RNA: mir-399 microRNA precursor family
RNA sequence: AGGUGAAUUGCGGGGCAAAUCUCCUUUGGCAGUGAGCCUUUAACCACUUAAUUACCGCAGUAAUCGAUCAGCGAACAAUUACUACUGCCAAAGGAGUAGUUGCCCAGUAAUACAUCC
Numbered sequence: 001a002g003g004u005g006a007a008u009u010g011c012g013g014g015g016c017a018a019a020u021c022u023c024c025u026u027u028g029g030c031a032g033u034g035a036g037c038c039u040u041u042a043a044c045c046a047c048u049u050a051a052u053u054a055c056c057g058c059a060g061u062a063a064u065c066g067a068u069c070a071g072c073g074a075a076c077a078a079u080u081a082c083u084a085c086u087g088c089c090a091a092a093g094g095a096g097u098a099g100u101u102g103c104c105c106a107g108u109a110a111u112a113c114a115u116c117c
Base pairs, nucleotide, nucleotide: 005113007111008110009109011107013105014104015103016102017101018100021096022095023094024093027090028089029088030087031086032085033084034083